[Rfam]
RNA sequence: GCCGAAGUGGUGAAAUUGGUAAACACAAUUGACUCAAAAUCAAUCGUCUCGUGUGGAUUUGCCGGUUCGAGUCCGGCCUUCGGCA
Number, nucleotide and partner (000 for none) at each position: 001g084002c083003c082004g081005a080006a079007g078008u000009g000010g026011u025012g024013a000014a000015a000016u000017u000018g000019g000020u000021a000022a000023a000024c012025a011026c010027a000028a044029u043030u042031g041032a040033c000034u000035c000036a000037a000038a000039a000040u032041c031042a030043a029044u028045c000046g000047u000048c000049u000050c000051g000052u000053g000054u000055g000056g000057a000058u000059u000060u000061g077062c076063c075064g074065g073066u000067u000068c000069g000070a000071g000072u000073c065074c064075g063076g062077c061078c007079u006080u005081c004082g003083g002084c001085a000

This 85-nucleotide RNA from Blochmannia endosymbiont of Polyrhachis (Hedomyrma) turneri belongs to the Rfam family "tRNA". The literature on the family includes a 1993 paper in Trends Biochem Sci by Hou, "The tertiary structure of tRNA and the development of the genetic code". From the family's description: Transfer RNA (tRNA) molecules are approximately 80 nucleotides in length. Lineage of the source: Bacteria > Pseudomonadati > Pseudomonadota > ant, tsetse, mealybug, aphid, etc. endosymbionts > Candidatus Blochmanniella.